[Rfam]
RNA sequence: CCAAGAAAUAGAGGUCGCGGUCGAUCACAAACCCUGAGGAGUGCCCUAACACGUUGAAUCAGGCUCAAGGAUCACCGCCGAAAUGGUGCGUUAUAUACGGGAUAACGUACUGUUGGGCCAGCGGGUGAAUAACUCCUGGACUGUCUUAGCAUUUGCUAAGGAGCGCUAUGAUUCUG
Numbered sequence: 001c002c003a004a005g006a007a008a009u010a011g012a013g014g015u016c017g018c019g020g021u022c023g024a025u026c027a028c029a030a031a032c033c034c035u036g037a038g039g040a041g042u043g044c045c046c047u048a049a050c051a052c053g054u055u056g057a058a059u060c061a062g063g064c065u066c067a068a069g070g071a072u073c074a075c076c077g078c079c080g081a082a083a084u085g086g087u088g089c090g091u092u093a094u095a096u097a098c099g100g101g102a103u104a105a106c107g108u109a110c111u112g113u114u115g116g117g118c119c120a121g122c123g124g125g126u127g128a129a130u131a132a133c134u135c136c137u138g139g140a141c142u143g144u145c146u147u148a149g150c151a152u153u154u155g156c157u158a159a160g161g162a163g164c165g166c167u168a169u170g171a172u173u174c175u176g
Base pairs, nucleotide, nucleotide: 008169009168010167011166017078018077019076020075021074023073024072025071026070031065033063034062035061036060037059082114083113084112085111086110087109088108089107090106091105092104093103115142116141118139119138120137121136123135124134125133126132144161145160146159147158148157149156150155